[Rfam]
RNA sequence: ACAAUGGUACUUCUGCAUAGCGAUACAUUCAAAACAUCGGUGCAGCUCGGAGCGAUCCUCGGAGGGGUGCAAUUCCCAUGU
Number, nucleotide and partner (000 for none) at each position: 001a000002c000003a000004a000005u000006g000007g000008u000009a000010c000011u000012u078013c045014u044015g043016c042017a041018u040019a000020g000021c000022g000023a000024u000025a000026c000027a000028u000029u000030c000031a000032a000033a000034a000035c000036a000037u000038c000039g000040g018041u017042g016043c015044a014045g013046c064047u063048c062049g000050g060051a059052g058053c000054g000055a000056u000057c000058c052059u051060c050061g000062g048063a047064g046065g077066g076067g075068u000069g000070c000071a000072a000073u000074u000075c067076c066077c065078a012079u000080g000081u000

Rfam assigns this 81-nucleotide sequence to the family "pemK RNA".